RNA sequence: CUGCGGGGAUGAUCACCCUGAACUCUCUCUUGCUGAUGAUCUGUGGAGAAGAUUUUUGACAAACUCUGAGUGGC
Number, nucleotide and partner (000 for none) at each position: 001c073002u072003g071004c070005g000006g000007g000008g000009a000010u000011g000012a000013u000014c000015a000016c000017c000018c000019u000020g000021a000022a000023c000024u000025c000026u000027c000028u000029c000030u000031u000032g000033c000034u000035g000036a000037u000038g000039a000040u000041c000042u000043g000044u000045g000046g000047a000048g000049a000050a000051g000052a000053u000054u000055u000056u000057u000058g000059a000060c000061a000062a000063a000064c000065u000066c000067u000068g000069a000070g004071u003072g002073g001074c000

Notes
Rfam assigns this 74-nucleotide RNA sequence from Origma solitaria to the family "Small nucleolar RNA SNORD26". The family's RNA type in Rfam is C/D-box small nucleolar RNA. Taxonomically the source falls in Origma (Eukaryota, Chordata, Sauropsida, Neognathae).